[Rfam]
RNA sequence: CACUGUCGCCAGGGGAGUCUCGCCGUGCAACCGGCGGGGCUGAGAGAGCCAAGCGCUGACCCUGGAACCUGAUCCGGUUCAUACCGGCGGAGGAAGUGCGACAUGCCCUACCU
Numbered sequence: 001c002a003c004u005g006u007c008g009c010c011a012g013g014g015g016a017g018u019c020u021c022g023c024c025g026u027g028c029a030a031c032c033g034g035c036g037g038g039g040c041u042g043a044g045a046g047a048g049c050c051a052a053g054c055g056c057u058g059a060c061c062c063u064g065g066a067a068c069c070u071g072a073u074c075c076g077g078u079u080c081a082u083a084c085c086g087g088c089g090g091a092g093g094a095a096g097u098g099c100g101a102c103a104u105g106c107c108c109u110a111c112c113u
Base pairs, nucleotide, nucleotide: 006101007100008099009098011063012062013061014060017040018039019038020037021036022035023034024033025032047057048056049055068093069092070091074087075086076085077084
RNA: TPP riboswitch aptamer (THI element)